Rfam assigns this 78-nucleotide sequence from Paenibacillus pini to the family "ZMP/ZTP riboswitch aptamer (pfl RNA motif)". It scores 57 bits against the family's covariance model. Lineage of the source: Bacteria > Bacillati > Bacilli > Caryophanales > Paenibacillus pini.

RNA sequence: UCGACUGUGUGUGACUGGCGGACAUGGGUAACCAUGAGGGAGCACAUGGAUAUAUAGCCGUACGCCUGGGCAAGAGGU
Numbered sequence: 001u002c003g004a005c006u007g008u009g010u011g012u013g014a015c016u017g018g019c020g021g022a023c024a025u026g027g028g029u030a031a032c033c034a035u036g037a038g039g040g041a042g043c044a045c046a047u048g049g050a051u052a053u054a055u056a057g058c059c060g061u062a063c064g065c066c067u068g069g070g071c072a073a074g075a076g077g078u
Stems, first nucleotide, its partner, number of pairs: 003051001005049008015039002017066004024035004055073001057071003